[Rfam]
RNA sequence: AACUAAAGAUCACCGGUAAGGGCGGAGGACCCAUUCAACCGUUUCAUGGUUCUAAACCAUGGAUCUCGGGGUGAAGCUGAGUCCGCCACUGUGGGCUCGGCCGAGUUAGUCUCAUGACUCGAAUCCGACAGCUAACUUCGCAGGCGAUACAUGAGAGGUUGU
Numbered sequence: 001a002a003c004u005a006a007a008g009a010u011c012a013c014c015g016g017u018a019a020g021g022g023c024g025g026a027g028g029a030c031c032c033a034u035u036c037a038a039c040c041g042u043u044u045c046a047u048g049g050u051u052c053u054a055a056a057c058c059a060u061g062g063a064u065c066u067c068g069g070g071g072u073g074a075a076g077c078u079g080a081g082u083c084c085g086c087c088a089c090u091g092u093g094g095g096c097u098c099g100g101c102c103g104a105g106u107u108a109g110u111c112u113c114a115u116g117a118c119u120c121g122a123a124u125c126c127g128a129c130a131g132c133u134a135a136c137u138u139c140g141c142a143g144g145c146g147a148u149a150c151a152u153g154a155g156a157g158g159u160u161g162u
Stems, first nucleotide, its partner, number of pairs: 003020002022141006032068001069126003077100010103120004
Dot-bracket structure: ..((..............)).((((((....(...................................)(((.....((((((((((....))))))))))..((((..........))))...))).........)))))).....................
Overview: Rfam assigns this 162-nucleotide RNA from Arthrobacter sp. MYb227 to the family "c-di-AMP riboswitch aptamer (ydaO/yuaA leader)". A search with the family's covariance model found it, with a score of 64 bits. Lineage of the source: Bacteria > Bacillati > Micrococcales > Micrococcaceae > Arthrobacter.